[Rfam]
RNA sequence: GCGAAGUUUCAUCUACAAAGGGAUAGAUUUUGUCUAGUGUAUACGAAUCGUUGAUAAACAAAGUAGCAAUCCCCAUGUCUUGCUUUAGCAAGACAUGGGGUAUUGCGAAUUG
Numbered sequence: 001g002c003g004a005a006g007u008u009u010c011a012u013c014u015a016c017a018a019a020g021g022g023a024u025a026g027a028u029u030u031u032g033u034c035u036a037g038u039g040u041a042u043a044c045g046a047a048u049c050g051u052u053g054a055u056a057a058a059c060a061a062a063g064u065a066g067c068a069a070u071c072c073c074c075a076u077g078u079c080u081u082g083c084u085u086u087a088g089c090a091a092g093a094c095a096u097g098g099g100g101u102a103u104u105g106c107g108a109a110u111u112g
Base pairs, nucleotide, nucleotide: 008023009022010021012019061111062110064108066106067105068104069103070102072100073098074097075096077094078093079092080091081090

This 112-nucleotide RNA from Musa balbisiana belongs to the Rfam family "Plastid-psbA-1 3UTR RNA".
Its Rfam clan is "Plastid-psbA 3UTR RNA clan".
Pairs were carried over by alignment from the consensus structure, which was predicted with LocARNA.
A search with the family's covariance model found it, with a score of 64 bits.
NCBI's taxonomy places the organism under Eukaryota, Euphyllophyta, Mesangiospermae, Petrosaviidae, Musa.
The family's RNA type in Rfam is cis-regulatory element.